[Rfam]
RNA sequence: GUGGGCUACGGCGAUAUGGCCCCCAAGACCUACCUGGGCAUGUUCGUGGGCGCGCUGUGUGCGCUCGCCGGGGUGCUCACGAUAGCCCUCCCGGUGCCUGUAAUCGUGUCCAAC
Dot-bracket structure: ((.((.(((((..(((.(..(...............((((.........((.........))...........))))................)..).)))..))))).)).))
Description:
Potassium channel RNA editing signal: a 114-nucleotide RNA from Plutella xylostella. Rfam's curators write: This family represents a group of sequences related to the human potassium channel Kv1.1 hairpin element which directs the efficient modification of an adenosine to inosine by an adenosine deaminase acting on RNA (ADAR). Pairs were carried over by alignment from the consensus structure, which is taken from published work. The source organism's lineage runs through Eukaryota, Pancrustacea, Endopterygota, Neolepidoptera and Plutella. The family has 85 seed sequences and 14,095 matches in Rfam 15.1.